[Rfam]
This 91-nucleotide RNA from Bucorvus abyssinicus belongs to the Rfam family "Small nucleolar SNORD12/SNORD106". The family's RNA type in Rfam is C/D-box small nucleolar RNA. The family's consensus secondary structure was predicted with RNAalifold. The match comes from Rfam's covariance-model search (79 bits). Clan: SNORD12 clan.
Nucleotides: 091
Stems, first nucleotide, its partner, number of pairs: 001091009
Number, partner (000 for none) and nucleotide at each position: 001091g002090c003089u004088g005087g006086u007085g008084u009083a010000a011000a012000u013000g014000a015000u016000g017000a018000c019000a020000g021000a022000u023000u024000u025000u026000u027000u028000u029000c030000c031000c032000c033000a034000u035000c036000a037000g038000a039000g040000c041000g042000a043000c044000a045000g046000u047000g048000u049000u050000g051000a052000u053000u054000a055000c056000u057000u058000c059000c060000u061000g062000u063000u064000c065000a066000a067000g068000c069000c070000a071000g072000a073000u074000c075000a076000u077000g078000u079000c080000u081000g082000a083009u084008g085007c086006a087005c088004c089003a090002g091001u